[Rfam]
RNA: L31-Firmicutes ribosomal protein leader
RNA sequence: CUCUGCGACAGGCAUAGGCUGUCUCAGGGCAGAAAGAG
Numbered sequence: 001c002u003c004u005g006c007g008a009c010a011g012g013c014a015u016a017g018g019c020u021g022u023c024u025c026a027g028g029g030c031a032g033a034a035a036g037a038g
Base pairs, nucleotide, nucleotide: 001029002028003027004026005025008022009021010020